[Rfam]
RNA: c-di-GMP-I riboswitch aptamer
Organism: Anoxynatronum buryatiense
RNA sequence: UAUUGAGAAAAGCAAAUUCAGCGAAAGUUGGAGACGCAAAGCCACGGGCCUAAAGCAAUUAUGCGAUGGCAGCCGGUUGCCGCA
Dot-bracket structure: ...........((...((((((....))))))...))..((((..(((((....(((....)))...)))..))))))......